[Rfam]
RNA: Vertebrate telomerase RNA
RNA sequence: UCACAUUGCUGCGGGGUGGAGGCGUUUUUAACUAACCCUAAUGCAGAGUAAGUGGCUGGGCCUUCCUCACACUGCCUCCCGCUGCGUGAAACCUCGCUGUUUUCUUGGCUAACUUUCAGCGAGGUGAGGCAAGGCGGCAAAAAAAAGUUGGGAGCAGCAACGGCAAGCAAAAAAAAAGUUCCAGCCGAGGCCUCCUCACCACGCGGCCUGGGUCUGAGGGUAACAUGGCCCUGCGGGAGAGAGCCAACACGGGGGGGCCCCGGUCCGGCUAACAGGGCAGGAGGUCGGCCCCAAUUGCCUCAGGCCCAGCCACUCCGGGCCGCGAUCAGCCCGGGCUUUCCCUACUUUGGGGCCCAAUGCUGUCGCGAAGAGUUCGGCUCUGUCAGCCCGGCUGGGUCCGGGUGGGGGCCGGCACAGAGGGACACACCGGGCCGGGGCGCCGAGGAUAGCUACCGCCCGCAGGGAUAGUAAAUAUCCGUGACCAGUGGCCUCGGUGGCUGCGUCUCCCGGAGCAAUGGGACCCGCAAGGCUGCCCUGGUCAUACACGC
Dot-bracket structure: ...((..((((((..(..(((((....................................(((((..........................(((((((((........[[[[[[[[[))))))))).....)))))......................................]]].]]]..]]]....))))).....).)))))).))...................(((((((...............................................((((((((...........(((((((((.........(((((.((((..(((((.............)))))...))))))))).((((.....))))........))))))))).......))))))))...........................................)))))))................((((.(.(((.........((((..((((........))))..)))).....)))).))))........